RNA sequence: UCGUCCUGAAAACGAAACGGAACAAAAGUUCAAGAUAUUGAUUUCGAAUCGUUUAUCAGGAUGAUG
Numbered sequence: 001u002c003g004u005c006c007u008g009a010a011a012a013c014g015a016a017a018c019g020g021a022a023c024a025a026a027a028g029u030u031c032a033a034g035a036u037a038u039u040g041a042u043u044u045c046g047a048a049u050c051g052u053u054u055a056u057c058a059g060g061a062u063g064a065u066g
Base pairs, nucleotide, nucleotide: 001064002063003062004061005060006059007058008057009056010054011053012052013051014050015049018046019045020044021043022042023040024039